Source information: Burkholderia RNA 7 (anti-hemB): an 87-nucleotide RNA sequence from Curvibacter sp. AEP1-3. It is annotated as a small RNA. A reference for the family is Weinberg et al. (2007), "Identification of 22 candidate structured RNAs in bacteria using the CMfinder comparative genomics pipeline", Nucleic Acids Res. From the family's description: This RNA motif was identified by computational search in b-proteobacteria Burkholderia. Co-purified with Hfq, expression confirmed by Northern blot. The source organism's lineage runs through Bacteria, Pseudomonadati, Pseudomonadota, Comamonadaceae and Curvibacter. Gene Ontology terms of the family: bacterial biofilm matrix and protein binding.
RNA sequence: UCCCCCGCUUUUCCUCCCUGAGCGGGGCCUUGAUGUGUGACAGCAAAAAAGGCUUACCACCCCAGCCGUGUGCUGGGGUUUUUUUUU
Numbered sequence: 001u002c003c004c005c006c007g008c009u010u011u012u013c014c015u016c017c018c019u020g021a022g023c024g025g026g027g028c029c030u031u032g033a034u035g036u037g038u039g040a041c042a043g044c045a046a047a048a049a050a051g052g053c054u055u056a057c058c059a060c061c062c063c064a065g066c067c068g069u070g071u072g073c074u075g076g077g078g079u080u081u082u083u084u085u086u087u
Base pairs, nucleotide, nucleotide: 004026005025006024007023008022009021028052029051030050031049059079060078061077062076063075064074065073066072